[Rfam]
RNA sequence: GACAACUACAUAGAAUGACUGUAGACAGCAGGUAUGGAUCUUCCAUCUAACGAGCAAGUUGCUCGCCCGCCGAGGUCGGAUUCAGGCGCAUUGCUUCAAAAGAUGCGGCUUCCGGCAUACAGUUGGGAGCCGUUUUAUUUUUGUUAA
Numbered sequence: 001g002a003c004a005a006c007u008a009c010a011u012a013g014a015a016u017g018a019c020u021g022u023a024g025a026c027a028g029c030a031g032g033u034a035u036g037g038a039u040c041u042u043c044c045a046u047c048u049a050a051c052g053a054g055c056a057a058g059u060u061g062c063u064c065g066c067c068c069g070c071c072g073a074g075g076u077c078g079g080a081u082u083c084a085g086g087c088g089c090a091u092u093g094c095u096u097c098a099a100a101a102g103a104u105g106c107g108g109c110u111u112c113c114g115g116c117a118u119a120c121a122g123u124u125g126g127g128a129g130c131c132g133u134u135u136u137a138u139u140u141u142u143g144u145u146a147a
Base pairs, nucleotide, nucleotide: 028070029069031067032066033065034046035045036044106132107131108130109129110128111127112126113125114124115123
Overview: Ribosomal protein L10 leader: a 147-nucleotide RNA sequence from Selenomonas sputigena. The match comes from Rfam's covariance-model search (45 bits). Rfam's curators write: This family is a putative r-protein leader autoregulatory structure found in B. subtilis and other low-GC Gram-positive bacteria.